Annotation
The family of this 171-nucleotide sequence from Prolemur simus is "Small Cajal body specific RNA 1". scaRNAs are a specific class of small nuclear RNAs which localise to the Cajal bodies and guide the modification of RNA polymerase II transcribed spliceosomal RNAs U1, U2, U4, U5 and U12. ACA35 belong to the H/ACA box class of guide RNAs as it has the predicted hairpin-hinge-hairpin-tail structure, conserved H/ACA-box motifs and is found associated with GAR1. It is predicted to guide pseudouridylation of the U2 spliceosomal snRNA at residue U89. Pairs were carried over by alignment from the consensus structure, which was predicted with RNAalifold.
[Rfam]
RNA sequence: UAGUACUUGAUACUAACCAAGCUGUCUAUUUCCUAGCCUGUGUCAAAGGCUUGUGAUGUGUUGUGAUAGCUGGGUUUAAAGAGUGCAAUAUUAGAACAAAAGCCAUGAGUCUUUUAAGGCCAGUGUGUAAAGAUACACUCUGACUCUGAGUUAUAGCUCAAAGGUUCAACC
Numbered sequence: 001u002a003g004u005a006c007u008u009g010a011u012a013c014u015a016a017c018c019a020a021g022c023u024g025u026c027u028a029u030u031u032c033c034u035a036g037c038c039u040g041u042g043u044c045a046a047a048g049g050c051u052u053g054u055g056a057u058g059u060g061u062u063g064u065g066a067u068a069g070c071u072g073g074g075u076u077u078a079a080a081g082a083g084u085g086c087a088a089u090a091u092u093a094g095a096a097c098a099a100a101a102g103c104c105a106u107g108a109g110u111c112u113u114u115u116a117a118g119g120c121c122a123g124u125g126u127g128u129a130a131a132g133a134u135a136c137a138c139u140c141u142g143a144c145u146c147u148g149a150g151u152u153a154u155a156g157c158u159c160a161a162a163g164g165u166u167c168a169a170c171c
Base pairs, nucleotide, nucleotide: 003086004085005084006083007082008081015076016075017074018073020071021070022069023068024067025066026065027060028059029058031056032055033053035051036050037049038048039047102165103164104163123138124137125136126135127134128133145162147160148159149158150157151156
Dot-bracket structure: ..((((((......((((.((((((((((.(((.(((((.......))))).).)).)))....))))))).))))....))))))...............(((..................((((((....))))))......(.(((((....))))).))))......

Rfam links the family to the GO terms nucleolus, Cajal body and RNA processing. The organism belongs to Prolemur, within Eukaryota.